Record summary:
A member of the RNA family "Exoribonuclease-resistant RNA (xrRNA) plant-infecting virus (class 3)" from Polerovirus CABYV, 53 nucleotides long. Exoribonuclease-resistant RNA (xrRNA) plant-infecting virus (class 3) is a ncRNA that was reported in Plant viruses. Gene Ontology term of the family: viral RNA genome replication. Lineage of the source: Viruses > Orthornavirae > Pisoniviricetes > Solemoviridae > Polerovirus CABYV.

RNA sequence: AACACCAGCCGAGCAUAUACGAGUUGCAAGCAUCGGAAGUAUAAGUCUCGUUA
Number, nucleotide and partner (000 for none) at each position: 001a042002a000003c000004a040005c039006c000007a000008g000009c036010c035011g000012a000013g031014c030015a000016u000017a000018u000019a051020c050021g049022a048023g047024u000025u000026g000027c000028a000029a000030g014031c013032a000033u000034c000035g010036g009037a000038a000039g005040u004041a000042u001043a000044a000045g000046u000047c023048u022049c021050g020051u019052u000053a000